This 558-nucleotide part of an RNA from Candidatus Zinderia insecticola belongs to the Rfam family "Bacterial small subunit ribosomal RNA". Rfam's curators put it in the seed alignment. NCBI's taxonomy places the organism under Bacteria, Betaproteobacteria, Burkholderiales, Candidatus Zinderia, Candidatus Zinderia insecticola. Its family is annotated with structural constituent of ribosome and ribosome in the Gene Ontology.
[Rfam]
RNA sequence: AUAAAUAAGAGUUUGAUCCUGGCUCAGAUUGAACGCUAGCGGUAUGCUUUACACAUGCAAGUCGAACGACAAUAUUAAAGCUUGCUUUAAUAUAAAGUGGCGAACGGGUGAGUAAUAUAUCAAAACGUACCUUAAAGUGGGGGAUAACUAAUUGAAAAAUUAGAUAAUACCGCAUAUUAAUCUUAGGAUGAAAAUAGGAAUAAUAUCUUAUGCUUUUAGAUCGGUUGAUAUCUGAUUAGCUAGUUGGUAGGGUAAAUGCUUACCAAGGCAAUGAUCAGUAGCUGGUUUUAGCGAAUGAUCAGCCACACUGGAACUGAGACACGGUCCAGACUUCUACGGAAGGCAGCAGUGGGGAAUAUUGGACAAUGGGAGAAAUCCUGAUCCAGCAAUACCGCGUGAGUGAUGAAGGCCUUAGGGUCGUAAAACUCUUUUGUUAGGAAAGAAAUAAUUUUAAAUAAUAUUUAAAAUUGAUGACGGUACCUAAAGAAUAAGCACCGGCUAACUACGUGCCAGCAGCCGCGGUAAUACGUAGGGUGCAAGCGUUAAUCGGAAUUAUUG
Numbered sequence: 001a002u003a004a005a006u007a008a009g010a011g012u013u014u015g016a017u018c019c020u021g022g023c024u025c026a027g028a029u030u031g032a033a034c035g036c037u038a039g040c041g042g043u044a045u046g047c048u049u050u051a052c053a054c055a056u057g058c059a060a061g062u063c064g065a066a067c068g069a070c071a072a073u074a075u076u077a078a079a080g081c082u083u084g085c086u087u088u089a090a091u092a093u094a095a096a097g098u099g100g101c102g103a104a105c106g107g108g109u110g111a112g113u114a115a116u117a118u119a120u121c122a123a124a125a126c127g128u129a130c131c132u133u134a135a136a137g138u139g140g141g142g143g144a145u146a147a148c149u150a151a152u153u154g155a156a157a158a159a160u161u162a163g164a165u166a167a168u169a170c171c172g173c174a175u176a177u178u179a180a181u182c183u184u185a186g187g188a189u190g191a192a193a194a195u196a197g198g199a200a201u202a203a204u205a206u207c208u209u210a211u212g213c214u215u216u217u218a219g220a221u222c223g224g225u226u227g228a229u230a231u232c233u234g235a236u237u238a239g240c241u242a243g244u245u246g247g248u249a250g251g252g253u254a255a256a257u258g259c260u261u262a263c264c265a266a267g268g269c270a271a272u273g274a275u276c277a278g279u280a281g282c283u284g285g286u287u288u289u290a291g292c293g294a295a296u297g298a299u300c301a302g303c304c305a306c307a308c309u310g311g312a313a314c315u316g317a318g319a320c321a322c323g324g325u326c327c328a329g330a331c332u333u334c335u336a337c338g339g340a341a342g343g344c345a346g347c348a349g350u351g352g353g354g355a356a357u358a359u360u361g362g363a364c365a366a367u368g369g370g371a372g373a374a375a376u377c378c379u380g381a382u383c384c385a386g387c388a389a390u391a392c393c394g395c396g397u398g399a400g401u402g403a404u405g406a407a408g409g410c411c412u413u414a415g416g417g418u419c420g421u422a423a424a425a426c427u428c429u430u431u432u433g434u435u436a437g438g439a440a441a442g443a444a445a446u447a448a449u450u451u452u453a454a455a456u457a458a459u460a461u462u463u464a465a466a467a468u469u470g471a472u473g474a475c476g477g478u479a480c481c482u483a484a485a486g487a488a489u490a491a492g493c494a495c496c497g498g499c500u501a502a503c504u505a506c507g508u509g510c511c512a513g514c515a516g517c518c519g520c521g522g523u524a525a526u527a528c529g530u531a532g533g534g535u536g537c538a539a540g541c542g543u544u545a546a547u548c549g550g551a552a553u554u555a556u557u558g
Stems, first nucleotide, its partner, number of pairs: 009025005027548004032544006039395006045388002047353001052351003056348003061101003066098002069093001074091007108306003117231007126223002131219002134216004139173001141171002148163006180189003194211006232278003239269003244266008281303004285296004308329005331342004359385001361384003367380005398428004408419004434484005442475001448469001450467003492537005503532005513520002